Record summary:
The family of this 110-nucleotide sequence from Paraliobacillus quinghaiensis is "PyrR binding site". Lineage of the source: Bacteria > Bacillati > Bacillota > Bacillaceae > Paraliobacillus. The literature on the family includes a 2001 paper in Nucleic Acids Res by Bonner et al., "Molecular recognition of pyr mRNA by the Bacillus subtilis attenuation regulatory protein PyrR". The base pairs follow the family's consensus structure, which is taken from published work. Rfam classes the family as a cis-regulatory element.

RNA sequence: AUGACCUUUAAUUACAGUCCCGUGAGGCUGAAAAGGAUUCGGUAAACAGGAUAGAAGUAUCUUUCUAUCUAAAUCCCUUUUCUCGCACACGGAGAAAAGGGAUUUUUUUG
Numbered sequence: 001a002u003g004a005c006c007u008u009u010a011a012u013u014a015c016a017g018u019c020c021c022g023u024g025a026g027g028c029u030g031a032a033a034a035g036g037a038u039u040c041g042g043u044a045a046a047c048a049g050g051a052u053a054g055a056a057g058u059a060u061c062u063u064u065c066u067a068u069c070u071a072a073a074u075c076c077c078u079u080u081u082c083u084c085g086c087a088c089a090c091g092g093a094g095a096a097a098a099g100g101g102a103u104u105u106u107u108u109u110g
Base pairs, nucleotide, nucleotide: 003038005036006035007034008033009032015030016029017028018027019026049070050069051068052067053066054065055064056063057062071105072104073103074102075101076100077099078098079097080096081095082094083093084092